[Rfam]
RNA sequence: UAUUAGUUUGGUGCAAAAGUAAUUGUGAGUUUUGCCAUUGAAAGAAAUGGCAAAACUCACAAUUACUUUUGCACCAAGCUAAUA
Numbered sequence: 001u002a003u004u005a006g007u008u009u010g011g012u013g014c015a016a017a018a019g020u021a022a023u024u025g026u027g028a029g030u031u032u033u034g035c036c037a038u039u040g041a042a043a044g045a046a047a048u049g050g051c052a053a054a055a056c057u058c059a060c061a062a063u064u065a066c067u068u069u070u071g072c073a074c075c076a077a078g079c080u081a082a083u084a
Base pairs, nucleotide, nucleotide: 001084002083003082004081005080006079007078008077009076010075011074012073013072014071015070016069017068018067019066020065021064022063023062024061025060026059027058028057029056030055031054032053033052034051035050036049037048038047039046
RNA: mir-548 microRNA precursor family